[Rfam]
RNA: Group II catalytic intron D1-D4-7
Organism: Linnemannia gamsii
RNA sequence: CCGACUGUUCCGUCAGUCGUAGCCUAUCGGCGCAUGCGGGGUUGGUAACGAGCCUGUGUGGAGCCGCCGAGACAAUGUAACCUGCUCAUAAGAGCAGCACGUCACUCGUGAGAGGGAUGUGCUAUCUGCUAGCGCAAAGGCGGAUCAGGUA
Numbered sequence: 001c002c003g004a005c006u007g008u009u010c011c012g013u014c015a016g017u018c019g020u021a022g023c024c025u026a027u028c029g030g031c032g033c034a035u036g037c038g039g040g041g042u043u044g045g046u047a048a049c050g051a052g053c054c055u056g057u058g059u060g061g062a063g064c065c066g067c068c069g070a071g072a073c074a075a076u077g078u079a080a081c082c083u084g085c086u087c088a089u090a091a092g093a094g095c096a097g098c099a100c101g102u103c104a105c106u107c108g109u110g111a112g113a114g115g116g117a118u119g120u121g122c123u124a125u126c127u128g129c130u131a132g133c134g135c136a137a138a139g140g141c142g143g144a145u146c147a148g149g150u151a
Stems, first nucleotide, its partner, number of pairs: 002019006028069005033060008042051003082097006098121004106113002125144006